Rfam assigns this 89-nucleotide sequence from Trifolium medium to the family "Small nucleolar RNA snoR53Y". Clan: snoR53 clan. Pairs were carried over by alignment from the consensus structure, which was predicted with WAR. A reference for the family is Brown et al. (2001), "Multiple snoRNA gene clusters from Arabidopsis", RNA. Gene Ontology terms of the family: nucleolus and RNA processing. Lineage of the source: Eukaryota > Magnoliopsida > Gunneridae > Fabales > Trifolium.

Nucleotides: 089
Stems, first nucleotide, its partner, number of pairs: 001088003005084001
Number, partner (000 for none) and nucleotide at each position: 001088g002087u003086u004000c005084c006000a007000a008000a009000u010000g011000a012000u013000u014000g015000u016000u017000u018000g019000c020000u021000a022000a023000u024000u025000u026000u027000u028000u029000u030000u031000a032000c033000c034000a035000u036000g037000c038000u039000a040000a041000u042000g043000c044000u045000g046000a047000u048000a049000a050000u051000u052000g053000a054000u055000g056000a057000u058000u059000g060000a061000u062000a063000a064000g065000a066000u067000c068000a069000u070000u071000u072000u073000a074000u075000c076000a077000c078000g079000c080000u081000g082000a083000g084005g085000c086003a087002a088001c089000u